Shown here is a 217-nucleotide RNA from Bacillus mycoides, a member of the family "Bacillus sRNA ncr1575". For this family Rfam cites "Identification of regulatory RNAs in Bacillus subtilis" (Irnov et al., Nucleic Acids Res, 2010).

RNA sequence: AAAUAGAAUUAUGAGAGGACUGAUGGAUGAAUAAUGAUUAACUAAUCUAUAUUUUAAUUUGAAAUUAAUAACUUCAAACUACAAAAUAUAGGGUUAGUCUAUCCAUUUUUAUAAAUCAGUUCAUACUUUAUUUGUCAUGAUUCCAAUGAUUAAUAAGAACUUAUUAAGUAUAAGUGAGAUACUAAUCCUUCCGAUUACAAAUUGGGAGGAUUUUUUU
Numbered sequence: 001a002a003a004u005a006g007a008a009u010u011a012u013g014a015g016a017g018g019a020c021u022g023a024u025g026g027a028u029g030a031a032u033a034a035u036g037a038u039u040a041a042c043u044a045a046u047c048u049a050u051a052u053u054u055u056a057a058u059u060u061g062a063a064a065u066u067a068a069u070a071a072c073u074u075c076a077a078a079c080u081a082c083a084a085a086a087u088a089u090a091g092g093g094u095u096a097g098u099c100u101a102u103c104c105a106u107u108u109u110u111a112u113a114a115a116u117c118a119g120u121u122c123a124u125a126c127u128u129u130a131u132u133u134g135u136c137a138u139g140a141u142u143c144c145a146a147u148g149a150u151u152a153a154u155a156a157g158a159a160c161u162u163a164u165u166a167a168g169u170a171u172a173a174g175u176g177a178g179a180u181a182c183u184a185a186u187c188c189u190u191c192c193g194a195u196u197a198c199a200a201a202u203u204g205g206g207a208g209g210a211u212u213u214u215u216u217u
Base pairs, nucleotide, nucleotide: 016110017109018108024105025104026103027102031098032097043096044095045094046093047092048091049089050088051087052086053085054084058078059077060076061075062074063073065071118165119160120159121158122157124155125154184212185211186210187209188208189207190206191205192204193203194202